[Rfam]
RNA sequence: AAUAAUAACGGGAAUGAUGUUCUCCCUGUUGGAUUAAACAAACCGCAUUUUUAAUGCUAAUGACGUCUACGACUUU
Numbered sequence: 001a002a003u004a005a006u007a008a009c010g011g012g013a014a015u016g017a018u019g020u021u022c023u024c025c026c027u028g029u030u031g032g033a034u035u036a037a038a039c040a041a042a043c044c045g046c047a048u049u050u051u052u053a054a055u056g057c058u059a060a061u062g063a064c065g066u067c068u069a070c071g072a073c074u075u076u
Base pairs, nucleotide, nucleotide: 010026011025012024013023016067017066018065019064020063021062045057046056047055048054

Fluoride riboswitch aptamer (crcB RNA motif): a 76-nucleotide sequence from Mycoplasmopsis anatis. The family's consensus secondary structure is taken from published work. Its family is annotated with response to fluoride and positive regulation of gene expression in the Gene Ontology.